[Rfam]
Record summary:
The record is a 352-nucleotide part of an RNA from Indibacter alkaliphilus, which matches "Bacterial small subunit ribosomal RNA" in Rfam. Taxonomically the source falls in Indibacter alkaliphilus (Bacteria, Pseudomonadati, Cytophagia, Cyclobacteriaceae). Pairs were carried over by alignment from the consensus structure, which is taken from published work. It scores 1536 bits against the family's covariance model.
RNA sequence: GGUUUAAAGGGUGCGUAGGCGGCCUUAUAAGUCAGCGGUGAAAGUUUGGGGCUCAACCCUAAAAUUGCCGUUGAUACUGUUUGGCUUGAGUGCGGUCUGGGUACAUGGAAUUUAUGGUGUAGCGGUGAAAUGCAUAGAUACCAUAAGGAACACCGAUAGCGUAGGCAUUGUACUGGUCCGCAACUGACGCUGAUGCACGAAAGCGCGGGUAGCGAACAGGAUUAGAUACCCUGGUAGUCCGCGCCGUAAACGAUGAUUACUCGCUGUUAUUCCUUUAUGGUGUAGCGGCCAAGCGAAAGCGUUAAGUAAUCCACCUGGGGAGUACGCCGGCAACGGUGAAACUCAAAGGAAU
Numbered sequence: 001g002g003u004u005u006a007a008a009g010g011g012u013g014c015g016u017a018g019g020c021g022g023c024c025u026u027a028u029a030a031g032u033c034a035g036c037g038g039u040g041a042a043a044g045u046u047u048g049g050g051g052c053u054c055a056a057c058c059c060u061a062a063a064a065u066u067g068c069c070g071u072u073g074a075u076a077c078u079g080u081u082u083g084g085c086u087u088g089a090g091u092g093c094g095g096u097c098u099g100g101g102u103a104c105a106u107g108g109a110a111u112u113u114a115u116g117g118u119g120u121a122g123c124g125g126u127g128a129a130a131u132g133c134a135u136a137g138a139u140a141c142c143a144u145a146a147g148g149a150a151c152a153c154c155g156a157u158a159g160c161g162u163a164g165g166c167a168u169u170g171u172a173c174u175g176g177u178c179c180g181c182a183a184c185u186g187a188c189g190c191u192g193a194u195g196c197a198c199g200a201a202a203g204c205g206c207g208g209g210u211a212g213c214g215a216a217c218a219g220g221a222u223u224a225g226a227u228a229c230c231c232u233g234g235u236a237g238u239c240c241g242c243g244c245c246g247u248a249a250a251c252g253a254u255g256a257u258u259a260c261u262c263g264c265u266g267u268u269a270u271u272c273c274u275u276u277a278u279g280g281u282g283u284a285g286c287g288g289c290c291a292a293g294c295g296a297a298a299g300c301g302u303u304a305a306g307u308a309a310u311c312c313a314c315c316u317g318g319g320g321a322g323u324a325c326g327c328c329g330g331c332a333a334c335g336g337u338g339a340a341a342c343u344c345a346a347a348g349g350a351a352u
Base pairs, nucleotide, nucleotide: 001315002314003313009312011198012197013196014195016192018191019190020189022085023084024083027080028079030078031077032074033073034072035071036070037069038068039067040066045063046062047061048060049059050058051057089185090184091183092181093180094179095178097176100174101173102172103171104170105169107151111147112146113145114144115143116142117141118140122133123132124131159166160165203244204243205242206241207240208239212238213237217233218232219231220230255311256310257309258308259307260306263289264288265287266286267285268284269283270282272280273279293300294299317344318343319342326337327336328335329334